RNA sequence: UGUUCUCCUGGUAACUGGCGAUAGAGUGGAUCAACCACGAGGAAGCCUGGAGAUAUUCCUUCUACAGUCGCUCGCCUGGGCUGGACAU
Numbered sequence: 001u002g003u004u005c006u007c008c009u010g011g012u013a014a015c016u017g018g019c020g021a022u023a024g025a026g027u028g029g030a031u032c033a034a035c036c037a038c039g040a041g042g043a044a045g046c047c048u049g050g051a052g053a054u055a056u057u058c059c060u061u062c063u064a065c066a067g068u069c070g071c072u073c074g075c076c077u078g079g080g081c082u083g084g085a086c087a088u
Base pairs, nucleotide, nucleotide: 004053005052006051007050008049010047011046012045015042016041017076018075019074020073021072026038027037028036029035065083066082067081068080069079
This 88-nucleotide RNA from Dictyobacter vulcani belongs to the Rfam family "ZMP/ZTP riboswitch aptamer (pfl RNA motif)". Lineage of the source: Bacteria > Bacillati > Chloroflexota > Ktedonobacteria > Dictyobacter. The family's consensus secondary structure is taken from published work. A reference for the family is Jones and Ferre-D'Amare (2015), "Recognition of the bacterial alarmone ZMP through long-distance association of two RNA subdomains", Nat Struct Mol Biol.